Shown here is a 132-nucleotide RNA from Myotis davidii, a member of the family "Small nucleolar RNA SNORA22".
Gene Ontology terms of the family: RNA processing and nucleolus.
From the family's description: ACA22 is a member of the H/ACA class of snoRNA that guide the sites of modification of uridines to pseudouridines.
The family's RNA type in Rfam is H/ACA-box small nucleolar RNA.
RNA sequence: UUGCACAGUGAAUACCAGUGUACUCUAUGGUUCCCUGGGCUUUGACUCUGUGCUAUAGCAGUGUCUGUUCUUUUCCUCUGUAGUGAAGGGGUCAUGUAUCCUUGUAAAUGUAUUCAGGAAGUCCGCACACUA
Numbered sequence: 001u002u003g004c005a006c007a008g009u010g011a012a013u014a015c016c017a018g019u020g021u022a023c024u025c026u027a028u029g030g031u032u033c034c035c036u037g038g039g040c041u042u043u044g045a046c047u048c049u050g051u052g053c054u055a056u057a058g059c060a061g062u063g064u065c066u067g068u069u070c071u072u073u074u075c076c077u078c079u080g081u082a083g084u085g086a087a088g089g090g091g092u093c094a095u096g097u098a099u100c101c102u103u104g105u106a107a108a109u110g111u112a113u114u115c116a117g118g119a120a121g122u123c124c125g126c127a128c129a130c131u132a
Base pairs, nucleotide, nucleotide: 003053004052005051006050007049008048010047013044014043016039017036018035020033022031023030024029055071057069058068059067060066077118078117079116080115081110082109084107085105087103088102089101090100091099